[Rfam]
RNA sequence: UUGUGUGUGAGGAGUAAGUUGAGAAACAGAAAGCGCUAGGGGUGGAAACACGGCAACACUCCCUGGCGCUUUUUGGC
Numbered sequence: 001u002u003g004u005g006u007g008u009g010a011g012g013a014g015u016a017a018g019u020u021g022a023g024a025a026a027c028a029g030a031a032a033g034c035g036c037u038a039g040g041g042g043u044g045g046a047a048a049c050a051c052g053g054c055a056a057c058a059c060u061c062c063c064u065g066g067c068g069c070u071u072u073u074u075g076g077c
Base pairs, nucleotide, nucleotide: 015076028074029073030072031071034068035067039063040062041061042059043058044057